Small nucleolar RNA SNORA17: a 132-nucleotide RNA.
The sequence is in the family's curated seed alignment.
Rfam's curators write: snoRNA ACA 17 belongs to the H/ACA family of snoRNAs and is predicted to guide pseudouridylation of the 28S rRNA at positions U4659 and U4598.
On this family, see Ofengand and Bakin, J Mol Biol 1997: "Mapping to nucleotide resolution of pseudouridine residues in large subunit ribosomal RNAs from representative eukaryotes, prokaryotes, archaebacteria, mitochondria and chloroplasts".
[Rfam]
RNA sequence: ACUGCCCCUAGAGGCUUUGCAGGUGUGGCCGCUGUGUCAUAUGUGUGUCAAUAGGUGGCAGGGAGGAGAGUGACUAUGUCUAUGCUCAGUGUUCUGACCCAUGAACAUCAGAGUGAUUAGCAGCCUAACAUC
Numbered sequence: 001a002c003u004g005c006c007c008c009u010a011g012a013g014g015c016u017u018u019g020c021a022g023g024u025g026u027g028g029c030c031g032c033u034g035u036g037u038c039a040u041a042u043g044u045g046u047g048u049c050a051a052u053a054g055g056u057g058g059c060a061g062g063g064a065g066g067a068g069a070g071u072g073a074c075u076a077u078g079u080c081u082a083u084g085c086u087c088a089g090u091g092u093u094c095u096g097a098c099c100c101a102u103g104a105a106c107a108u109c110a111g112a113g114u115g116a117u118u119a120g121c122a123g124c125c126u127a128a129c130a131u132c
Stems, first nucleotide, its partner, number of pairs: 002061005007055004013049003019046003024041006068129001072125001074123002077120001083115002086112002089109001090107005
Its family is annotated with nucleolus and RNA processing in the Gene Ontology.